[Rfam]
This 84-nucleotide RNA sequence from Jaculus jaculus belongs to the Rfam family "Small nucleolar RNA SNORD24". Pairs were carried over by alignment from the consensus structure, which was predicted with PFOLD. The family has 14 seed sequences and 2,843 matches in Rfam 15.1. It is annotated as a C/D-box small nucleolar RNA. A search with the family's covariance model found it, with a score of 44 bits.

RNA sequence: UGCCACAAUGAUGACAUUAUAUUUGCUACUCUUGACUUGGAAGAGUGAUGAUAAUCAUAGUCCACCAUUACUGUAACUGAGGCA
Numbered sequence: 001u002g003c004c005a006c007a008a009u010g011a012u013g014a015c016a017u018u019a020u021a022u023u024u025g026c027u028a029c030u031c032u033u034g035a036c037u038u039g040g041a042a043g044a045g046u047g048a049u050g051a052u053a054a055u056c057a058u059a060g061u062c063c064a065c066c067a068u069u070a071c072u073g074u075a076a077c078u079g080a081g082g083c084a
Stems, first nucleotide, its partner, number of pairs: 001084004